[Rfam]
RNA sequence: CACUUCUCUUGAGCACCGCUCUGUCUAACAGUGACAGUGUACGGUUUCGUAUGAGAAGGAGAGCAAAGUCGCAGUUAAACAGGCAGCUGCCUUAGUGGCAGUUGCCCAUGUCUGAUGUGAAACAGAC
Numbered sequence: 001c002a003c004u005u006c007u008c009u010u011g012a013g014c015a016c017c018g019c020u021c022u023g024u025c026u027a028a029c030a031g032u033g034a035c036a037g038u039g040u041a042c043g044g045u046u047u048c049g050u051a052u053g054a055g056a057a058g059g060a061g062a063g064c065a066a067a068g069u070c071g072c073a074g075u076u077a078a079a080c081a082g083g084c085a086g087c088u089g090c091c092u093u094a095g096u097g098g099c100a101g102u103u104g105c106c107c108a109u110g111u112c113u114g115a116u117g118u119g120a121a122a123c124a125g126a127c
Base pairs, nucleotide, nucleotide: 003058004057005056006055007054008053013050014049015045016044017043021037022036023035024034025033069120070119071118072117073116087101088100089099090098091097

Source information
The family of this 127-nucleotide sequence from Oreochromis niloticus is "Small nucleolar RNA SNORA75". From the family's description: U23 belongs to the H/ACA class of snoRNAs. snoRNAs bind a number of proteins (including dyskerin, Gar1p and Nop10p in the case of the H/ACA class) to form snoRNP complexes. This class are thought to guide the sites of modification of uridines to pseudouridines by forming direct base pairing interactions with substrate RNAs. Targets include ribosomal and spliceosomal RNAs as well as the Trypanosoma spliced leader RNA (SL RNA) as possibly other, still unknown cellular RNAs. U23 can direct the pseudouridylation of U97 in human 18S rRNA (Bachellerie JP, Ganot, P unpublished data). On this family, see Bachellerie et al., Biochimie 2002: "The expanding snoRNA world". The match comes from Rfam's covariance-model search (84 bits). The organism belongs to Oreochromis, within Eukaryota.